Background:
Rfam assigns this 67-nucleotide RNA sequence from Candidimonas nitroreducens to the family "Fluoride riboswitch aptamer (crcB RNA motif)". Taxonomically the source falls in Candidimonas (Bacteria, Betaproteobacteria, Burkholderiales, Alcaligenaceae). The family's consensus secondary structure is taken from published work. Its family is annotated with response to fluoride and positive regulation of gene expression in the Gene Ontology. A search with the family's covariance model found it, with a score of 52 bits.
RNA sequence: UGCGCACAAGGAGAUGGCAUUCCUCCUUCAACCGCUGAUCCCAUCGGCUGAUGAUGCCUACGAAGCU
Numbered sequence: 001u002g003c004g005c006a007c008a009a010g011g012a013g014a015u016g017g018c019a020u021u022c023c024u025c026c027u028u029c030a031a032c033c034g035c036u037g038a039u040c041c042c043a044u045c046g047g048c049u050g051a052u053g054a055u056g057c058c059u060a061c062g063a064a065g066c067u
Base pairs, nucleotide, nucleotide: 010026011025012024013023016058017057018056019055020054021053034048035047036046037045